A member of the RNA family "Mitochondrion-encoded tmRNA" from Pythium oligandrum, 77 nucleotides long. Its Rfam clan is "tRNA clan". The pairing is the family consensus, mapped onto this sequence. For this family Rfam cites "A second eukaryotic group with mitochondrion-encoded tmRNA: in silico identification and experimental confirmation" (Hafez et al., RNA Biol, 2013). Lineage of the source: Eukaryota > Sar > Stramenopiles > Peronosporomycetes > Pythium.
RNA sequence: AAAAUGGACCCAAAGGCGGUUUUUGGUAUUUCCAUAUAAAAAAAAUAAUAGGGAAAUAAUACUAGAAUUGACAUUUU
Numbered sequence: 001a002a003a004a005u006g007g008a009c010c011c012a013a014a015g016g017c018g019g020u021u022u023u024u025g026g027u028a029u030u031u032c033c034a035u036a037u038a039a040a041a042a043a044a045a046u047a048a049u050a051g052g053g054a055a056a057u058a059a060u061a062c063u064a065g066a067a068u069u070g071a072c073a074u075u076u077u
Stems, first nucleotide, its partner, number of pairs: 001077006010026006027058007